[Rfam]
RNA: 6S / SsrS RNA
RNA sequence: CAUGGCCUGGGGUGUUCGAGGUCCGGUCAAGUUUGAUACCUACAAGCAUUUGAGAGGGAGCGUGAGCAGGAUUGUGGUGUGCAUGCCGGUCCCGAAAGGAUCCGGAAGCCUAAACAUCCUCGAGCGCCAAUACGUGGAAAACGGGUAUCUCAAAUGGCGAUCGGCACGGCAUCCUGGACCUUUU
Numbered sequence: 001c002a003u004g005g006c007c008u009g010g011g012g013u014g015u016u017c018g019a020g021g022u023c024c025g026g027u028c029a030a031g032u033u034u035g036a037u038a039c040c041u042a043c044a045a046g047c048a049u050u051u052g053a054g055a056g057g058g059a060g061c062g063u064g065a066g067c068a069g070g071a072u073u074g075u076g077g078u079g080u081g082c083a084u085g086c087c088g089g090u091c092c093c094g095a096a097a098g099g100a101u102c103c104g105g106a107a108g109c110c111u112a113a114a115c116a117u118c119c120u121c122g123a124g125c126g127c128c129a130a131u132a133c134g135u136g137g138a139a140a141a142c143g144g145g146u147a148u149c150u151c152a153a154a155u156g157g158c159g160a161u162c163g164g165c166a167c168g169g170c171a172u173c174c175u176g177g178a179c180c181u182u183u184u
Stems, first nucleotide, its partner, number of pairs: 002182001004180002007177009017168002032154003035149006056131001057128002060125002063122003069119004074115002081109002086105004